[Rfam]
RNA: Small nucleolar RNA SNORD18
RNA sequence: UUGCUGUGAUGAGUUGCUUUCGGUCCGUGUUUCUGACAUUUUAGUUUGACGAUUUGAAAGCUCUGAGCAA
Numbered sequence: 001u002u003g004c005u006g007u008g009a010u011g012a013g014u015u016g017c018u019u020u021c022g023g024u025c026c027g028u029g030u031u032u033c034u035g036a037c038a039u040u041u042u043a044g045u046u047u048g049a050c051g052a053u054u055u056g057a058a059a060g061c062u063c064u065g066a067g068c069a070a
Stems, first nucleotide, its partner, number of pairs: 001070004